[Rfam]
RNA sequence: UCUAGCAGAAGAGGAGCACUGCCCAGGCAGAUGUUUUGUGGAACCGCAUUUCCAAUACAAAACAUUUAUGGGGAGCAGUGCCGAGAUAAUAAAAGGAUGCAGGACCUUUAUUAUCGGUUGAGUGGGCUGAAUCCCUUCAACUGUCGCCAUUUCUAUAUGGUGAAGAGCUUCUGAGGUU
Numbered sequence: 001u002c003u004a005g006c007a008g009a010a011g012a013g014g015a016g017c018a019c020u021g022c023c024c025a026g027g028c029a030g031a032u033g034u035u036u037u038g039u040g041g042a043a044c045c046g047c048a049u050u051u052c053c054a055a056u057a058c059a060a061a062a063c064a065u066u067u068a069u070g071g072g073g074a075g076c077a078g079u080g081c082c083g084a085g086a087u088a089a090u091a092a093a094a095g096g097a098u099g100c101a102g103g104a105c106c107u108u109u110a111u112u113a114u115c116g117g118u119u120g121a122g123u124g125g126g127c128u129g130a131a132u133c134c135c136u137u138c139a140a141c142u143g144u145c146g147c148c149a150u151u152u153c154u155a156u157a158u159g160g161u162g163a164a165g166a167g168c169u170u171c172u173g174a175g176g177u178u
Stems, first nucleotide, its partner, number of pairs: 006173006016081007024073001030066008085115009095105001116142007124135003144163007
Overview:
Lysine riboswitch aptamer: a 178-nucleotide RNA from Vibrio toranzoniae. The family's consensus secondary structure is taken from published work. Rfam's curators write: Riboswitches are metabolite binding domains within certain messenger RNAs that serve as precision sensors for their corresponding targets. A search with the family's covariance model found it, with a score of 89 bits. Lineage of the source: Bacteria > Pseudomonadota > Vibrionales > Vibrionaceae > Vibrio.